[Rfam]
RNA sequence: CCUUGGGAGUGUUAAGAAAAUACGAGUAGAGAUUUCAUCUCAAAAGUAAACACGUUGAAUAAGGAA
Number, nucleotide and partner (000 for none) at each position: 001c064002c063003u062004u061005g060006g000007g000008a000009g053010u052011g051012u050013u049014a000015a000016g000017a000018a000019a000020a000021u048022a047023c046024g000025a000026g000027u000028a000029g041030a040031g039032a000033u000034u000035u000036c000037a000038u000039c031040u030041c029042a000043a000044a000045a000046g023047u022048a021049a013050a012051c011052a010053c009054g000055u000056u000057g000058a000059a000060u005061a004062a003063g002064g001065a000066a000
Rfam assigns this 66-nucleotide sequence to the family "RAGATH-18 RNA". The sequence is in the family's curated seed alignment.